[Rfam]
RNA sequence: ACAACAUUCGGACUGUCGUUCUACCGAGCAAUAUCACCCGCUCGGUGGAAGAUCUCACCUUUGUCGU
Numbered sequence: 001a002c003a004a005c006a007u008u009c010g011g012a013c014u015g016u017c018g019u020u021c022u023a024c025c026g027a028g029c030a031a032u033a034u035c036a037c038c039c040g041c042u043c044g045g046u047g048g049a050a051g052a053u054c055u056c057a058c059c060u061u062u063g064u065c066g067u
Base pairs, nucleotide, nucleotide: 004064005063006062010058015053016052017051020049021048022047023046024045025044026043027042028041029040
RNA: mir-2774 microRNA precursor family
Organism: Bombyx mori